A member of the RNA family "Small nucleolar RNA SNORA57" from Rynchops niger, 135 nucleotides long. For this family Rfam cites "Identification of 13 novel human modification guide RNAs" (Vitali et al., Nucleic Acids Res, 2003). Rfam classes the family as an H/ACA-box small nucleolar RNA. Pairs were carried over by alignment from the consensus structure, which was predicted with PFOLD. Rfam describes the family as follows. U99 belongs to the H/ACA class of snoRNAs which are thought to guide the sites of modification of uridines to pseudouridines, the target for this family is unknown.
RNA sequence: CCUCCCGUUCUUGGCAGGCUCUGGCGGCGCUGUGCCCGGGCCUGGGAUGUUCGGAGGUAGAGCAGCGGCCGGCGCGAAGUCUUCGGUGCCCGCGGGUCCCCUCCGCCGGUCCUACCCUCACGUGCCGGGACAGCC
Numbered sequence: 001c002c003u004c005c006c007g008u009u010c011u012u013g014g015c016a017g018g019c020u021c022u023g024g025c026g027g028c029g030c031u032g033u034g035c036c037c038g039g040g041c042c043u044g045g046g047a048u049g050u051u052c053g054g055a056g057g058u059a060g061a062g063c064a065g066c067g068g069c070c071g072g073c074g075c076g077a078a079g080u081c082u083u084c085g086g087u088g089c090c091c092g093c094g095g096g097u098c099c100c101c102u103c104c105g106c107c108g109g110u111c112c113u114a115c116c117c118u119c120a121c122g123u124g125c126c127g128g129g130a131c132a133g134c135c
Base pairs, nucleotide, nucleotide: 001057002056003055004054005053015044016043017042018041019040020039023036024035025034070127071126072125073124074123075122089109090108092106093105094104095103